This 120-nucleotide RNA sequence from Streptomyces showdoensis belongs to the Rfam family "Streptomyces-metH RNA".
Lineage of the source: Bacteria > Bacillati > Actinomycetota > Streptomycetaceae > Streptomyces.
A search with the family's covariance model found it, with a score of 96 bits.
The family's consensus secondary structure is taken from published work.
RNA sequence: CAGUCCACCUUGUGGAACCCGAUGUCCACCCCGGCACCCGCGCGGUUAGUCUGACCCCGUGCGCUCUCCACCGGGAGCGCAAAGCCGACAGCCGUCGCAUCCCAGGGAGCUUCAUCCAUG
Number, nucleotide and partner (000 for none) at each position: 001c000002a000003g000004u000005c000006c000007a000008c000009c000010u000011u000012g000013u000014g000015g000016a000017a000018c000019c000020c000021g000022a000023u000024g000025u000026c000027c000028a000029c000030c000031c000032c000033g000034g000035c000036a000037c000038c000039c000040g000041c000042g000043c000044g000045g000046u000047u000048a000049g000050u000051c000052u000053g000054a000055c000056c000057c000058c000059g000060u081061g080062c079063g078064c000065u076066c075067u074068c073069c000070a000071c000072c000073g068074g067075g066076a065077g000078c063079g062080c061081a060082a000083a000084g098085c097086c000087g096088a095089c094090a000091g000092c000093c000094g089095u088096c087097g085098c084099a000100u000101c000102c000103c000104a000105g000106g000107g000108a000109g000110c000111u000112u000113c000114a000115u000116c000117c000118a000119u000120g000